Description: Small nucleolar RNA snR60/Z15/Z230/Z193/J17: a 93-nucleotide RNA sequence from Effrenium voratum. It scores 43 bits against the family's covariance model.
[Rfam]
RNA sequence: CGUGAGGCUGUGAAGAGGCAAACAAAUGCAUAGUUCACUCGGAGACGCGUGACCAAAGCUUUCAACGUCUUUCGCUCCUAUUUGAGCCUCAAG
Number, nucleotide and partner (000 for none) at each position: 001c000002g000003u000004g090005a089006g088007g087008c086009u000010g000011u000012g000013a000014a000015g000016a000017g000018g000019c000020a000021a000022a000023c000024a000025a000026a000027u000028g000029c000030a000031u000032a000033g000034u000035u000036c000037a000038c000039u000040c000041g000042g000043a000044g000045a000046c000047g000048c000049g000050u000051g000052a000053c000054c000055a000056a000057a000058g000059c000060u000061u000062u000063c000064a000065a000066c000067g000068u000069c000070u000071u000072u000073c000074g000075c000076u000077c000078c000079u000080a000081u000082u000083u000084g000085a000086g008087c007088c006089u005090c004091a000092a000093g000
The family has 23 seed sequences and 3,592 matches in Rfam 15.1. The literature on the family includes a 2003 paper in Nucleic Acids Res by Chen et al., "The high diversity of snoRNAs in plants: identification and comparative study of 120 snoRNA genes from Oryza sativa". Its Rfam clan is "SNORD77 clan". Gene Ontology terms of the family: nucleolus and RNA processing.